[Rfam]
RNA sequence: GCCGUGGGCCGUGACUGGCGCGCUGGGAUGGGACCGACCAUCGGGGAGCGGCCCGUUCGACACAGUGCCGUGCGCCUGGGCCGUACCC
Dot-bracket structure: ...(((((((((..(([[[[[......((((......))))..))..)))))))))..........(((..]]]]]..))).......
RNA: ZMP/ZTP riboswitch aptamer (pfl RNA motif)
Organism: Streptomyces longwoodensis